A member of the RNA family "mir-199 microRNA precursor family" from Vireo altiloquus, 80 nucleotides long. Rfam 15.1 lists 1,828 matches to the family in 648 species. This family consists of the microRNA (miRNA) precursor mir-199 which appears to be specific to humans. Animal miRNAs are transcribed as ~70nt precursors and subsequently processed by the Dicer enzyme to give a ~22nt product. In this case the mature sequence comes from the 3' arm of the precursor. On this family, see Ambros, Cell 2001: "microRNAs: tiny regulators with great potential". The base pairs follow the family's consensus structure, which was predicted with RNAalifold.

RNA sequence: ACUCCGUCUGCCCAGUGUUCAGACUACCUGUUCAGCUGGGCAGGGAUGUACAGUAGUCUGCACAUUGGUUAGGCUGUGCU
Numbered sequence: 001a002c003u004c005c006g007u008c009u010g011c012c013c014a015g016u017g018u019u020c021a022g023a024c025u026a027c028c029u030g031u032u033c034a035g036c037u038g039g040g041c042a043g044g045g046a047u048g049u050a051c052a053g054u055a056g057u058c059u060g061c062a063c064a065u066u067g068g069u070u071a072g073g074c075u076g077u078g079c080u
Stems, first nucleotide, its partner, number of pairs: 012068007020060007028053004033048002